Record summary:
This 88-nucleotide sequence from Anaerostipes rhamnosivorans belongs to the Rfam family "c-di-GMP-I riboswitch aptamer". Clan: c-di-GMP_I riboswitch clan. It scores 71 bits against the family's covariance model.
RNA sequence: UUACAUAUUCAGUAAAGCUGUCGAAAGACAGCGGCACAAAGCCAAGGGUCUAAGGUCUGGCAGCAGACUAUGACAGCCGGUUGCCGCA
Numbered sequence: 001u002u003a004c005a006u007a008u009u010c011a012g013u014a015a016a017g018c019u020g021u022c023g024a025a026a027g028a029c030a031g032c033g034g035c036a037c038a039a040a041g042c043c044a045a046g047g048g049u050c051u052a053a054g055g056u057c058u059g060g061c062a063g064c065a066g067a068c069u070a071u072g073a074c075a076g077c078c079g080g081u082u083g084c085c086g087c088a
Base pairs, nucleotide, nucleotide: 012037013036017032018031019030020029021028022027040082041081042080043079046078047077048074049073050072055068056067057066058065